The record is a 79-nucleotide sequence from Carpinus fangiana, which matches "Small nucleolar RNA R21" in Rfam. The family's consensus secondary structure was predicted with PFOLD. Its family is annotated with RNA processing and nucleolus in the Gene Ontology.
RNA sequence: CUUCCCAGUGAUGAAUUAUGUGAAUAUCAAAAGUAGUGGACUGAAUUUCUAUUUGAUGAGCAAUGCAUUCUGAGGGAUG
Numbered sequence: 001c002u003u004c005c006c007a008g009u010g011a012u013g014a015a016u017u018a019u020g021u022g023a024a025u026a027u028c029a030a031a032a033g034u035a036g037u038g039g040a041c042u043g044a045a046u047u048u049c050u051a052u053u054u055g056a057u058g059a060g061c062a063a064u065g066c067a068u069u070c071u072g073a074g075g076g077a078u079g
Base pairs, nucleotide, nucleotide: 001079003077004076005075006074
The match comes from Rfam's covariance-model search (57 bits).
Rfam classes the family as a C/D-box small nucleolar RNA.